The family of this 180-nucleotide RNA from Sulfurirhabdus autotrophica is "6S / SsrS RNA".
Pairs were carried over by alignment from the consensus structure, which is taken from published work.
Rfam classes the family as a non-coding RNA gene.
Taxonomically the source falls in Sulfurirhabdus (Bacteria, Pseudomonadati, Betaproteobacteria, Nitrosomonadales).
Rfam's curators write: E. coli 6S RNA was the first non coding RNA to be sequenced, but its function was unknown until recently. It consists of 184 nucleotides that fold into an extended hairpin structure with a large single-stranded internal bulge. The 6S RNA specifically associates with RNA polymerase holoenzyme containing the sigma70 specificity factor.
RNA sequence: UGUCCCCUGCGGUGUUUGUUAAAGGCUUCAAUUCUUUGAACCAAUAUGCAUAGCAUAAGGUUACGACCAAUUGUAGUGCGGUGUGAUCGUCCUAUGCGGACGAACCUGAAGCACUCGGGAAGUGACCAUCUUGAACCCUAGGUUCAAGAAUGAAUCCUUGACGGCAUUUGCGGGGGCCUU
Numbered sequence: 001u002g003u004c005c006c007c008u009g010c011g012g013u014g015u016u017u018g019u020u021a022a023a024g025g026c027u028u029c030a031a032u033u034c035u036u037u038g039a040a041c042c043a044a045u046a047u048g049c050a051u052a053g054c055a056u057a058a059g060g061u062u063a064c065g066a067c068c069a070a071u072u073g074u075a076g077u078g079c080g081g082u083g084u085g086a087u088c089g090u091c092c093u094a095u096g097c098g099g100a101c102g103a104a105c106c107u108g109a110a111g112c113a114c115u116c117g118g119g120a121a122g123u124g125a126c127c128a129u130c131u132u133g134a135a136c137c138c139u140a141g142g143u144u145c146a147a148g149a150a151u152g153a154a155u156c157c158u159u160g161a162c163g164g165c166a167u168u169u170g171c172g173g174g175g176g177c178c179u180u
Base pairs, nucleotide, nucleotide: 002178004176005175006174007173008172009171010170011169012167013166014165015164017163018162019161032150033149034148035147037146038145039144040143041142042141059127060126061125063123064122067119068118075115076114077113078112079111085105088102089101090100091099092098